[Rfam]
Source information
Small nucleolar RNA U3: a 209-nucleotide sequence from Aphis gossypii. The match comes from Rfam's covariance-model search (114 bits). Small nucleolar RNAs (snoRNAs) are involved in the processing and modification of rRNA in the nucleolus. Taxonomically the source falls in Aphis (Eukaryota, Panarthropoda, Allotriocarida, Aphidini). By type it is a C/D-box small nucleolar RNA.
RNA sequence: AAGAUCAUACUUCACAGGAUCAUUUCUGUAGUAUGCAUCGUCCCCUCCAGGUGCAAAUCUGGAGUCGUCAUUGGCCACGAUGAUGAGACUUAGUCCAUGUAUCGGAGCGUGAGGCGGCUGACGGUCUACUGUUAACGCAGUCGGAACGUUUAGCAACGAUGAUCGCAACCAGCCGACGGGUUGGGAGGUACGUGGACAGUCUGAGUGGU
Numbered sequence: 001a002a003g004a005u006c007a008u009a010c011u012u013c014a015c016a017g018g019a020u021c022a023u024u025u026c027u028g029u030a031g032u033a034u035g036c037a038u039c040g041u042c043c044c045c046u047c048c049a050g051g052u053g054c055a056a057a058u059c060u061g062g063a064g065u066c067g068u069c070a071u072u073g074g075c076c077a078c079g080a081u082g083a084u085g086a087g088a089c090u091u092a093g094u095c096c097a098u099g100u101a102u103c104g105g106a107g108c109g110u111g112a113g114g115c116g117g118c119u120g121a122c123g124g125u126c127u128a129c130u131g132u133u134a135a136c137g138c139a140g141u142c143g144g145a146a147c148g149u150u151u152a153g154c155a156a157c158g159a160u161g162a163u164c165g166c167a168a169c170c171a172g173c174c175g176a177c178g179g180g181u182u183g184g185g186a187g188g189u190a191c192g193u194g195g196a197c198a199g200u201c202u203g204a205g206u207g208g209u
Stems, first nucleotide, its partner, number of pairs: 001041001003039003006035006015028005047062003051059001074209005093197011107166003117154004124147002128141004169184002174179001